[Rfam]
RNA: THF (Tetrahydrofolate) riboswitch aptamer
Organism: Alkaliphilus peptidifermentans
RNA sequence: GGCAGAGUAGACAUUAUGCGUUAAGUGUUAGGAGAUGGGAAGUUGCUCCUAAACGAAGAAUUAUGCAUUCGCGAUAUAAUGUUGCGUCCGCUGCA
Numbered sequence: 001g002g003c004a005g006a007g008u009a010g011a012c013a014u015u016a017u018g019c020g021u022u023a024a025g026u027g028u029u030a031g032g033a034g035a036u037g038g039g040a041a042g043u044u045g046c047u048c049c050u051a052a053a054c055g056a057a058g059a060a061u062u063a064u065g066c067a068u069u070c071g072c073g074a075u076a077u078a079a080u081g082u083u084g085c086g087u088c089c090g091c092u093g094c095a
Base pairs, nucleotide, nucleotide: 002094003093004092005091010083011082012081013080014079015078016077017076018075019073020072021071025054026053028052029051030050031049032048033047034046038089039088040087042085058070059069060068061067